[Rfam]
RNA sequence: UCAGACGGCCGGACGGCCGCCCUCGGAUUCACCUCCGGGGGAGGAAAGUCCGGGCUCCACGGAAUACACGGUGCCGGAUAACGUCCGGCGGGGGCGACCCUAGGGAAAGUGCCACAGAAAGCAAACCGCCCGCUCCCAGGCCUUCGGGUUUGGCAGCUGGUAAGGGUGAAAGGGUGCGGUAAGAGCGCACCGCGCGACCGGCAACGGAAGCGGCACGGUAAACCCCACCGGGAGCAAGACCAAAUAGGGACGGCACUGUUCUUCUUCGGAAGGACGAAACGCGUUUCCGCGUCGCCGUCCGGGUCGGUCGCGAGAGGCGUCCGGUAACGGACGUCCCAGAUGAAUGGCCGUCACCCGCUUUCGGGCGGGGACAGAACCCGGCUUACAGGCCGUCUGACGCA
Numbered sequence: 001u002c003a004g005a006c007g008g009c010c011g012g013a014c015g016g017c018c019g020c021c022c023u024c025g026g027a028u029u030c031a032c033c034u035c036c037g038g039g040g041g042a043g044g045a046a047a048g049u050c051c052g053g054g055c056u057c058c059a060c061g062g063a064a065u066a067c068a069c070g071g072u073g074c075c076g077g078a079u080a081a082c083g084u085c086c087g088g089c090g091g092g093g094g095c096g097a098c099c100c101u102a103g104g105g106a107a108a109g110u111g112c113c114a115c116a117g118a119a120a121g122c123a124a125a126c127c128g129c130c131c132g133c134u135c136c137c138a139g140g141c142c143u144u145c146g147g148g149u150u151u152g153g154c155a156g157c158u159g160g161u162a163a164g165g166g167u168g169a170a171a172g173g174g175u176g177c178g179g180u181a182a183g184a185g186c187g188c189a190c191c192g193c194g195c196g197a198c199c200g201g202c203a204a205c206g207g208a209a210g211c212g213g214c215a216c217g218g219u220a221a222a223c224c225c226c227a228c229c230g231g232g233a234g235c236a237a238g239a240c241c242a243a244a245u246a247g248g249g250a251c252g253g254c255a256c257u258g259u260u261c262u263u264c265u266u267c268g269g270a271a272g273g274a275c276g277a278a279a280c281g282c283g284u285u286u287c288c289g290c291g292u293c294g295c296c297g298u299c300c301g302g303g304u305c306g307g308u309c310g311c312g313a314g315a316g317g318c319g320u321c322c323g324g325u326a327a328c329g330g331a332c333g334u335c336c337c338a339g340a341u342g343a344a345u346g347g348c349c350g351u352c353a354c355c356c357g358c359u360u361u362c363g364g365g366c367g368g369g370g371a372c373a374g375a376a377c378c379c380g381g382c383u384u385a386c387a388g389g390c391c392g393u394c395u396g397a398c399g400c401a
Base pairs, nucleotide, nucleotide: 001397002396003395004394005393006392007391008390009389010388011386012352013351014350015349016348017347018346020041021040022039023038024037025036026035027034046384047383048382050381051380052379053378054377055234056233057232058231066285069230070229071228072227073226074088075087076086077085078084089103090101091100092099093098104225105224109223110222111219112218113217126165127164128161129160130159132157133156134155136153137152138151139150140149141148142147173191174190175189176188177187178186192214193212194211195210198207199206200205238309239308240307241306248300249299250298251297252296253295279292280291281290282289316335317334318333319332320331321330322329323328
Source information: A member of the RNA family "Bacterial RNase P class A" from Paramagnetospirillum magneticum, 401 nucleotides long. The sequence is in the family's curated seed alignment.